This 101-nucleotide sequence from Chthonomonas calidirosea belongs to the Rfam family "Bacterial small signal recognition particle RNA".
Rfam classes the family as a non-coding RNA gene.
The match comes from Rfam's covariance-model search (55 bits).
Clan: SRP clan.
NCBI's taxonomy places the organism under Bacteria, Bacillati, Armatimonadota, Chthonomonadales, Chthonomonas calidirosea.
Gene Ontology terms of the family: signal recognition particle, plasma membrane targeting and SRP-dependent cotranslational protein targeting to membrane, signal sequence recognition.

RNA sequence: AGCCGGGCCAGCUGCACAGGUAGGCAAUCGAACCAGGUCAGGUUCGGAAGAAAGCAGCCUUAAGAUUAGCCUGCCCGGUGCGGCCUGUUCACCCGGCUCUG
Numbered sequence: 001a002g003c004c005g006g007g008c009c010a011g012c013u014g015c016a017c018a019g020g021u022a023g024g025c026a027a028u029c030g031a032a033c034c035a036g037g038u039c040a041g042g043u044u045c046g047g048a049a050g051a052a053a054g055c056a057g058c059c060u061u062a063a064g065a066u067u068a069g070c071c072u073g074c075c076c077g078g079u080g081c082g083g084c085c086u087g088u089u090c091a092c093c094c095g096g097c098u099c100u101g
Stems, first nucleotide, its partner, number of pairs: 004095004011084004015078001017077001019075004026067004035060004043052003